[Rfam]
Pseudomonas sRNA P26: a 62-nucleotide RNA from Leminorella richardii. From the family's description: This small RNA (sRNA) was computationally identified in the genome of the opportunistic pathogen Pseudomonas aeruginosa and its expression verified by northern blot analysis. P26 is conserved across many Gammaproteobacteria species and appears to be consistently located between the DNA directed RNA polymerase (beta subunit) and 50S ribosomal protein L7/L12 genes. It is annotated as a non-coding RNA gene. A search with the family's covariance model found it, with a score of 73 bits.
RNA sequence: UUUUUCCAGUUUGCAGCCUGACUUAAAAGGCUGAUGGCUGGUGACUUUUUAGUCACCAGCCU
Numbered sequence: 001u002u003u004u005u006c007c008a009g010u011u012u013g014c015a016g017c018c019u020g021a022c023u024u025a026a027a028a029g030g031c032u033g034a035u036g037g038c039u040g041g042u043g044a045c046u047u048u049u050u051a052g053u054c055a056c057c058a059g060c061c062u
Stems, first nucleotide, its partner, number of pairs: 014033005036061010